[Rfam]
Small nucleolar RNA snoR97: a 105-nucleotide RNA from Cucumis melo. Gene Ontology terms of the family: nucleolus and RNA processing. For this family Rfam cites "Experimental RNomics: identification of 140 candidates for small non-messenger RNAs in the plant Arabidopsis thaliana" (Marker et al., Curr Biol, 2002). The match comes from Rfam's covariance-model search (70 bits). Taxonomically the source falls in Cucumis (Eukaryota, Spermatophyta, eudicotyledons, Benincaseae).
Nucleotides: 105
Stems, first nucleotide, its partner, number of pairs: 042098006053086006061077002
Number, partner (000 for none) and nucleotide at each position: 001000u002000u003000u004000u005000c006000a007000a008000u009000a010000u011000g012000g013000a014000u015000a016000u017000g018000g019000a020000g021000u022000c023000u024000g025000a026000u027000a028000a029000a030000c031000u032000a033000a034000a035000a036000u037000a038000u039000u040000u041000u042098g043097u044096g045095c046094u047093g048000u049000c050000a051000u052000c053086a054085g055084c056083u057082u058081c059000u060000a061077c062076u063000a064000g065000c066000c067000u068000g069000c070000a071000u072000u073000a074000g075000g076062a077061g078000a079000c080000u081058g082057g083056a084055g085054u086053u087000a088000a089000a090000u091000a092000a093047c094046a095045g096044u097043a098042c099000c100000a101000a102000a103000u104000u105000u